[Rfam]
Fluoride riboswitch aptamer (crcB RNA motif): a 74-nucleotide sequence from Pyrinomonas methylaliphatogenes.
RNA sequence: AAAAUUCGGGGCGAUGGAGUUCGCCGUAUAACCAUCUCGGUCGCCAGAUCGAGAUUGAUGACUCCUUUUCAAGC
Numbered sequence: 001a002a003a004a005u006u007c008g009g010g011g012c013g014a015u016g017g018a019g020u021u022c023g024c025c026g027u028a029u030a031a032c033c034a035u036c037u038c039g040g041u042c043g044c045c046a047g048a049u050c051g052a053g054a055u056u057g058a059u060g061a062c063u064c065c066u067u068u069u070c071a072a073g074c
Stems, first nucleotide, its partner, number of pairs: 010025004016065006034055009

Rfam 15.1 lists 2,293 matches to the family in 1,982 species. A search with the family's covariance model found it, with a score of 41 bits.